[Rfam]
RNA: mir-166 microRNA precursor family
RNA sequence: GGUGUUUGGAAUGAGGUUUGUUCCAAGAUCAUCACACAUCAUGUUUCUUCUUCCCUUUCAAUAAUUCUUGAUUAAUUUAUGUUCAUACAUCUAUAUAUAUAUCUAUAUAUAUUAUCAAGUCAUUACAUGCAUGGGAUGAGAUAUUGAGAGUGAUCUCGGACCAGGCUUCAUUCCUCACACC
Numbered sequence: 001g002g003u004g005u006u007u008g009g010a011a012u013g014a015g016g017u018u019u020g021u022u023c024c025a026a027g028a029u030c031a032u033c034a035c036a037c038a039u040c041a042u043g044u045u046u047c048u049u050c051u052u053c054c055c056u057u058u059c060a061a062u063a064a065u066u067c068u069u070g071a072u073u074a075a076u077u078u079a080u081g082u083u084c085a086u087a088c089a090u091c092u093a094u095a096u097a098u099a100u101a102u103c104u105a106u107a108u109a110u111a112u113u114a115u116c117a118a119g120u121c122a123u124u125a126c127a128u129g130c131a132u133g134g135g136a137u138g139a140g141a142u143a144u145u146g147a148g149a150g151u152g153a154u155c156u157c158g159g160a161c162c163a164g165g166c167u168u169c170a171u172u173c174c175u176c177a178c179a180c181c
Stems, first nucleotide, its partner, number of pairs: 001181005008174006016166005024158001026156007